Rfam assigns this 109-nucleotide sequence to the family "TPP riboswitch aptamer (THI element)". The base pairs follow the family's consensus structure, which is taken from published work. Vitamin B(1) in its active form thiamin pyrophosphate (TPP) is an essential coenzyme that is synthesised by coupling of pyrimidine and thiazole moieties in bacteria.
[Rfam]
RNA sequence: AAAAGUGACUAGGGGUGCUCGUAAAUGGGCUGAGAGAGAAGCAUAAGCUUCUUAACCCUUUGGACCUGAUCUGGCUCGUACCAGCGUGGGGAAGUUGAAGAUGAUGCAU
Numbered sequence: 001a002a003a004a005g006u007g008a009c010u011a012g013g014g015g016u017g018c019u020c021g022u023a024a025a026u027g028g029g030c031u032g033a034g035a036g037a038g039a040a041g042c043a044u045a046a047g048c049u050u051c052u053u054a055a056c057c058c059u060u061u062g063g064a065c066c067u068g069a070u071c072u073g074g075c076u077c078g079u080a081c082c083a084g085c086g087u088g089g090g091g092a093a094g095u096u097g098a099a100g101a102u103g104a105u106g107c108a109u
Base pairs, nucleotide, nucleotide: 006097007096008095009094010093011059012058013057014056017030018029019028020027021026037052038051039050040049041048065090066089067088068087071084072083073082074081